Shown here is a 57-nucleotide RNA from Aquabacter sp. L1I39, a member of the family "COG3860 RNA".

RNA sequence: CGGUCCGCAGUUCACCGAGACGUCGCCGCCCCGCAUCCGGGGAAGCUAAACCUGCCG
Dot-bracket structure: ((((.........))))...........((((......))))...............
Background: The base pairs follow the family's consensus structure, which is taken from published work. The match comes from Rfam's covariance-model search (69 bits). The source organism's lineage runs through Bacteria, Pseudomonadota, Hyphomicrobiales, Xanthobacteraceae and Aquabacter.